[Rfam]
RNA sequence: UUGCCGCACAAGAAGCAAUAACGAAUAGCAAUACUAGGAACCACCUCCUUGCCGGCCCAAUCUCCCUUGGGCUGGUUUUCUU
Numbered sequence: 001u002u003g004c005c006g007c008a009c010a011a012g013a014a015g016c017a018a019u020a021a022c023g024a025a026u027a028g029c030a031a032u033a034c035u036a037g038g039a040a041c042c043a044c045c046u047c048c049u050u051g052c053c054g055g056c057c058c059a060a061u062c063u064c065c066c067u068u069g070g071g072c073u074g075g076u077u078u079u080c081u082u
Stems, first nucleotide, its partner, number of pairs: 036049004051077001052075009
RNA: CyaR/Rye RNA
Organism: Edwardsiella hoshinae